[Rfam]
RNA sequence: UACUGAAUAACAAUGCAAACAUAAACAUACAACACAACAUGGAAAAAUUUACCUUACUCCGAUUAUCUCUGUUAUCGUAUUUUGUGCGAGGAUAAAGAUUGAUUGGAAAAAGUAAAUGGACUAUCCACAUUCUUGCCCGCACCUUAAAAUGCGGGCUUUUUUUAUCAAAU
Numbered sequence: 001u002a003c004u005g006a007a008u009a010a011c012a013a014u015g016c017a018a019a020c021a022u023a024a025a026c027a028u029a030c031a032a033c034a035c036a037a038c039a040u041g042g043a044a045a046a047a048u049u050u051a052c053c054u055u056a057c058u059c060c061g062a063u064u065a066u067c068u069c070u071g072u073u074a075u076c077g078u079a080u081u082u083u084g085u086g087c088g089a090g091g092a093u094a095a096a097g098a099u100u101g102a103u104u105g106g107a108a109a110a111a112g113u114a115a116a117u118g119g120a121c122u123a124u125c126c127a128c129a130u131u132c133u134u135g136c137c138c139g140c141a142c143c144u145u146a147a148a149a150u151g152c153g154g155g156c157u158u159u160u161u162u163u164a165u166c167a168a169a170u
Stems, first nucleotide, its partner, number of pairs: 013022003040127004047117003051113002054110002058107005063101001065099004070094004075089006135156007
Shown here is a 170-nucleotide RNA from Mannheimia haemolytica, a member of the family "Actinobacillus sRNA 14". It is annotated as a small RNA. A reference for the family is Rossi et al. (2016), "A computational strategy for the search of regulatory small RNAs in Actinobacillus pleuropneumoniae", RNA. Lineage of the source: Bacteria > Pseudomonadati > Pseudomonadota > Pasteurellaceae > Mannheimia haemolytica. The family's consensus secondary structure was predicted with RNAfold. About the family: Arrc stands for Actinobacillus pleuropneumoniae Regulatory RNA Candidate. May control the expression of ferric permease (gene afuB2) and ferredoxin (fdx). TargetRNA2 was used for the predictions.